RNA sequence: GUAAGGGAAUCAUGUCCGGUGAUGCGGCCGGUCUUCAAAGCCGGUGAAGGCUGUAAGACAGUCUUAGUGGGUUCGACUCCCACUUUCUUCC
Numbered sequence: 001g002u003a004a005g006g007g008a009a010u011c012a013u014g015u016c017c018g019g020u021g022a023u024g025c026g027g028c029c030g031g032u033c034u035u036c037a038a039a040g041c042c043g044g045u046g047a048a049g050g051c052u053g054u055a056a057g058a059c060a061g062u063c064u065u066a067g068u069g070g071g072u073u074c075g076a077c078u079c080c081c082a083c084u085u086u087c088u089u090c091c
Base pairs, nucleotide, nucleotide: 001091003089004088005087006086007085008084011026013024014023015022016021027045028044029043030042031041032040047065048064049063050062051061068082069081070080071079

Selenocysteine transfer RNA: a 91-nucleotide sequence from a Rhodospirillaceae bacterium. The source organism's lineage runs through Bacteria, Pseudomonadati, Pseudomonadota, Rhodospirillales and Rhodospirillaceae. It scores 67 bits against the family's covariance model.